[Rfam]
RNA sequence: GAAGCAGGAUAAGUGUGUAUCGGUGCUAUGCCUGUUCAUGCAUUUCUAGCCGAAAGUGUUUCCUGCUAUAGAAAUAUUGGGGAAAGUGGGCAGUUGGGUUGCACGCUAAUUGUAUGGCUAUCUCAACAAUCAUUUUCCUCACAUGC
Numbered sequence: 001g002a003a004g005c006a007g008g009a010u011a012a013g014u015g016u017g018u019a020u021c022g023g024u025g026c027u028a029u030g031c032c033u034g035u036u037c038a039u040g041c042a043u044u045u046c047u048a049g050c051c052g053a054a055a056g057u058g059u060u061u062c063c064u065g066c067u068a069u070a071g072a073a074a075u076a077u078u079g080g081g082g083a084a085a086g087u088g089g090g091c092a093g094u095u096g097g098g099u100u101g102c103a104c105g106c107u108a109a110u111u112g113u114a115u116g117g118c119u120a121u122c123u124c125a126a127c128a129a130u131c132a133u134u135u136u137c138c139u140c141a142c143a144u145g146c
Stems, first nucleotide, its partner, number of pairs: 004066006015043006079140011093127004
A member of the RNA family "small nucleolar RNA snoR135" from Ananas comosus, 146 nucleotides long. The base pairs follow the family's consensus structure, which was predicted with RNAalifold. The source organism's lineage runs through Eukaryota, Streptophyta, Streptophytina, Embryophyta and Ananas. By type it is an H/ACA-box small nucleolar RNA. Rfam links the family to the GO terms nucleolus and RNA processing. On this family, see Chen and Wu, Nucleic Acids Res 2009: "Mining small RNA sequencing data: a new approach to identify small nucleolar RNAs in Arabidopsis".